RNA sequence: AUGCCUUAAACUUAUGAGUAAGGAAAAUAACGAUCCGGGGUGACGCCCGGGUCCUCACUCCGAAUGUGAGAAGAAUUUUUGUGCGGGUACAGGUCGCCCUUGGGUGUUCAGCUUACUUUGCGGAAUGCCCGGGUGUCGUGAUCUGCCCG
Numbered sequence: 001a002u003g004c005c006u007u008a009a010a011c012u013u014a015u016g017a018g019u020a021a022g023g024a025a026a027a028u029a030a031c032g033a034u035c036c037g038g039g040g041u042g043a044c045g046c047c048c049g050g051g052u053c054c055u056c057a058c059u060c061c062g063a064a065u066g067u068g069a070g071a072a073g074a075a076u077u078u079u080u081g082u083g084c085g086g087g088u089a090c091a092g093g094u095c096g097c098c099c100u101u102g103g104g105u106g107u108u109c110a111g112c113u114u115a116c117u118u119u120g121c122g123g124a125a126u127g128c129c130c131g132g133g134u135g136u137c138g139u140g141a142u143c144u145g146c147c148c149g
Stems, first nucleotide, its partner, number of pairs: 004023005032053008054070005084149005091144007099133002102130005108124002111121002
The family of this 149-nucleotide RNA sequence from Acrocephalus arundinaceus is "U12 minor spliceosomal RNA". The family is grouped with related families in Rfam's "U2 clan". The match comes from Rfam's covariance-model search (144 bits). The family's RNA type in Rfam is spliceosomal small nuclear RNA.